[Rfam]
RNA sequence: UGACCAGGGGGCUGGGCAGCUCUGAUCGAUGCAAUAUCGGAGCCGCCUAGGGGUACAAGGAGUACCUCCGCACAGGGCCGGGUCAGGAAAGCA
Numbered sequence: 001u002g003a004c005c006a007g008g009g010g011g012c013u014g015g016g017c018a019g020c021u022c023u024g025a026u027c028g029a030u031g032c033a034a035u036a037u038c039g040g041a042g043c044c045g046c047c048u049a050g051g052g053g054u055a056c057a058a059g060g061a062g063u064a065c066c067u068c069c070g071c072a073c074a075g076g077g078c079c080g081g082g083u084c085a086g087g088a089a090a091g092c093a
Stems, first nucleotide, its partner, number of pairs: 001085005010079004014048004020042007050068007

Shown here is a 93-nucleotide RNA sequence, a member of the family "ivy-DE RNA". The family's RNA type in Rfam is cis-regulatory element. The base pairs follow the family's consensus structure, which is taken from published work. The sequence is in the family's curated seed alignment.